[Rfam]
RNA sequence: GGCCAGUUUCUAUCCACUACGGAUCGUCGGGCACGUACCUGCCCGUGGAAGGAAGUG
Numbered sequence: 001g002g003c004c005a006g007u008u009u010c011u012a013u014c015c016a017c018u019a020c021g022g023a024u025c026g027u028c029g030g031g032c033a034c035g036u037a038c039c040u041g042c043c044c045g046u047g048g049a050a051g052g053a054a055g056u057g
Base pairs, nucleotide, nucleotide: 010052011051013049014048015047016046028045029044030043031042032041033040